[Rfam]
RNA sequence: CCAAAGGCUCUUUUAAGAGCCACCCACUUCUCAUAGAAGGAGCUAU
Numbered sequence: 001c002c003a004a005a006g007g008c009u010c011u012u013u014u015a016a017g018a019g020c021c022a023c024c025c026a027c028u029u030c031u032c033a034u035a036g037a038a039g040g041a042g043c044u045a046u
Stems, first nucleotide, its partner, number of pairs: 006021006
The family of this 46-nucleotide RNA sequence from Ameiurus melas is "Histone 3' UTR stem-loop". A search with the family's covariance model found it, with a score of 42 bits. Lineage of the source: Eukaryota > Clupeocephala > Characiphysae > Siluriformes > Ameiurus.